[Rfam]
RNA: FMN riboswitch aptamer (RFN element)
RNA sequence: UAAAGUUCUCAGGGCGGGGUGAAAGUCCCCACCGGCGGUAAGGGCCUCAAACCCAAGCCCGCGAGCGCUUUCCAAGACAAUUGGAAAGGUCAGCAGAUCCGGUGUGAUUCCGGAGCCGACGGUUAGAGUCCGGAUGAAAGAGGACGAAA
Numbered sequence: 001u002a003a004a005g006u007u008c009u010c011a012g013g014g015c016g017g018g019g020u021g022a023a024a025g026u027c028c029c030c031a032c033c034g035g036c037g038g039u040a041a042g043g044g045c046c047u048c049a050a051a052c053c054c055a056a057g058c059c060c061g062c063g064a065g066c067g068c069u070u071u072c073c074a075a076g077a078c079a080a081u082u083g084g085a086a087a088g089g090u091c092a093g094c095a096g097a098u099c100c101g102g103u104g105u106g107a108u109u110c111c112g113g114a115g116c117c118g119a120c121g122g123u124u125a126g127a128g129u130c131c132g133g134a135u136g137a138a139a140g141a142g143g144a145c146g147a148a149a
Base pairs, nucleotide, nucleotide: 005145006144007143008142009141010140017029018028019027031129032128033118034117035062036061037060038059057116058115065094066093098114099113100112101111102110120132121131122130